[Rfam]
RNA sequence: CCGCACUAGAUGGGGAGCUAGCGGUGCCCUGCACCCGCAAUCCGCUACAGCGGGAUUGAAUUCCUCCCAGAGGCCUGCCCGUUGGGCCUAUAUCGUGACCGGAAGUCGUUGAGGGCUGGGUCCCACGCGGCGCAGACUUGUGAACCCCGCCAGGUCCGAAAGGAAGCAACGGUAAACAGGAUCCUGUGUGCGCCGUGGGAGUGCCUGGCCUGAGUCAUCCGCCGCGACAAGCUCGGUUGUCAGUGUCGACCGGAGGUGCGCGG
Numbered sequence: 001c002c003g004c005a006c007u008a009g010a011u012g013g014g015g016a017g018c019u020a021g022c023g024g025u026g027c028c029c030u031g032c033a034c035c036c037g038c039a040a041u042c043c044g045c046u047a048c049a050g051c052g053g054g055a056u057u058g059a060a061u062u063c064c065u066c067c068c069a070g071a072g073g074c075c076u077g078c079c080c081g082u083u084g085g086g087c088c089u090a091u092a093u094c095g096u097g098a099c100c101g102g103a104a105g106u107c108g109u110u111g112a113g114g115g116c117u118g119g120g121u122c123c124c125a126c127g128c129g130g131c132g133c134a135g136a137c138u139u140g141u142g143a144a145c146c147c148c149g150c151c152a153g154g155u156c157c158g159a160a161a162g163g164a165a166g167c168a169a170c171g172g173u174a175a176a177c178a179g180g181a182u183c184c185u186g187u188g189u190g191c192g193c194c195g196u197g198g199g200a201g202u203g204c205c206u207g208g209c210c211u212g213a214g215u216c217a218u219c220c221g222c223c224g225c226g227a228c229a230a231g232c233u234c235g236g237u238u239g240u241c242a243g244u245g246u247c248g249a250c251c252g253g254a255g256g257u258g259c260g261c262g263g
Base pairs, nucleotide, nucleotide: 001263002262003261004260006258009057010056011055012030013029014028015027017025018024019023034054035053036052037051038050063256064255065254066253067252072247073246074245076243079239081237082236083235084234085233086232087231091229094226095225096224097223099221102219103218105216107214113211114210115209116208117207118206119205120204121203122199123198124197125196126195127194128190129189131188132187133186134185135184137180138179139178140177141176147172148171149170155164156163157162
RNA: Bacterial large signal recognition particle RNA